RNA: Burkholderia sRNA 2
Organism: Burkholderia vietnamiensis
RNA sequence: AUGAAUGCCAGUUCGCCCCAUAUUUCUCGUAGCUGCGCCGGUGUCCGUUGCGACGCUUUCCGGCAUCUGACGCGCAUCACGACGGUAUCAGCCGAGCCGCAUGUCCCUGUCGACGGGGCAGCGGCUUUUUUU
Numbered sequence: 001a002u003g004a005a006u007g008c009c010a011g012u013u014c015g016c017c018c019c020a021u022a023u024u025u026c027u028c029g030u031a032g033c034u035g036c037g038c039c040g041g042u043g044u045c046c047g048u049u050g051c052g053a054c055g056c057u058u059u060c061c062g063g064c065a066u067c068u069g070a071c072g073c074g075c076a077u078c079a080c081g082a083c084g085g086u087a088u089c090a091g092c093c094g095a096g097c098c099g100c101a102u103g104u105c106c107c108u109g110u111c112g113a114c115g116g117g118g119c120a121g122c123g124g125c126u127u128u129u130u131u132u
Stems, first nucleotide, its partner, number of pairs: 007038002009035005014029002040078005046072004055064003083094004095126006102120006